A member of the RNA family "mir-240 microRNA precursor family" from Caenorhabditis remanei, 103 nucleotides long. The organism belongs to Caenorhabditis, within Eukaryota. A search with the family's covariance model found it, with a score of 78 bits.
[Rfam]
Nucleotides: 103
Base pairs, nucleotide, nucleotide: 009101010100011099012098016093017092018091019090020089021088023086024085025084026083027082028081029080030079031078033076035074036073037072038071042067043066044065045064
Number, partner (000 for none) and nucleotide at each position: 001000c002000u003000a004000c005000c006000u007000a008000a009101a010100a011099c012098u013000g014000u015000u016093u017092u018091c019090g020089a021088a022000u023086c024085g025084g026083g027082a028081g029080u030079u031078u032000c033076g034000u035074g036073g037072c038071c039000u040000g041000a042067a043066u044065g045064c046000g047000u048000g049000a050000a051000c052000g053000c054000u055000u056000g057000u058000g059000c060000u061000u062000u063000a064045g065044c066043a067042u068000a069000c070000u071038g072037g073036c074035c075000c076033c077000c078031a079030a080029a081028u082027u083026u084025u085024c086023g087000c088021u089020u090019u091018g092017a093016a094000u095000u096000c097000u098012a099011g100010u101009u102000g103000u